[Rfam]
RNA sequence: AAUGCAGCGUAUUGAUCAUAGAAGGAGCAUUCACAUGGUGGCUCAUGUCAUAUCUUCUGAAUCUGUGAAUCCUGUU
Numbered sequence: 001a002a003u004g005c006a007g008c009g010u011a012u013u014g015a016u017c018a019u020a021g022a023a024g025g026a027g028c029a030u031u032c033a034c035a036u037g038g039u040g041g042c043u044c045a046u047g048u049c050a051u052a053u054c055u056u057c058u059g060a061a062u063c064u065g066u067g068a069a070u071c072c073u074g075u076u
Stems, first nucleotide, its partner, number of pairs: 013045003016041002020076002023073004027039002049065002052062002054059001